[Rfam]
RNA: MIR394 microRNA precursor family
RNA sequence: CUAACAGAACUCUGUUGGCAGUAUGUCCACCUCCCAAGAAUUUUGAUGUCAAAAAGAAUGAAGAUCGGAGGAGGUGGACAGAAUGCCAAUAAACUCUGUAAG
Numbered sequence: 001c002u003a004a005c006a007g008a009a010c011u012c013u014g015u016u017g018g019c020a021g022u023a024u025g026u027c028c029a030c031c032u033c034c035c036a037a038g039a040a041u042u043u044u045g046a047u048g049u050c051a052a053a054a055a056g057a058a059u060g061a062a063g064a065u066c067g068g069a070g071g072a073g074g075u076g077g078a079c080a081g082a083a084u085g086c087c088a089a090u091a092a093a094c095u096c097u098g099u100a101a102g
Stems, first nucleotide, its partner, number of pairs: 011093001015089006024080011
Dot-bracket structure: ..........(...((((((...(((((((((((...................................)))))))))))...))))))...).........